[Rfam]
RNA sequence: UGUCAUGCUUUUCCACAGCUUUCUUGAACUUCAGCCUGAAUUUGAUCCAUCCAUCCAUCCACCCAUCUCUCUCUCUUUGUCUUCUGGGAUUUUUUUCAUCAAGCAAUGAAGUUCAAGAAAGCUGUGGGAAGACAUGGCCA
Numbered sequence: 001u002g003u004c005a006u007g008c009u010u011u012u013c014c015a016c017a018g019c020u021u022u023c024u025u026g027a028a029c030u031u032c033a034g035c036c037u038g039a040a041u042u043u044g045a046u047c048c049a050u051c052c053a054u055c056c057a058u059c060c061a062c063c064c065a066u067c068u069c070u071c072u073c074u075c076u077u078u079g080u081c082u083u084c085u086g087g088g089a090u091u092u093u094u095u096u097c098a099u100c101a102a103g104c105a106a107u108g109a110a111g112u113u114c115a116a117g118a119a120a121g122c123u124g125u126g127g128g129a130a131g132a133c134a135u136g137g138c139c140a
Stems, first nucleotide, its partner, number of pairs: 003137005013127003017123006024116004029111005
RNA: MIR396 microRNA precursor family
Organism: Coffea arabica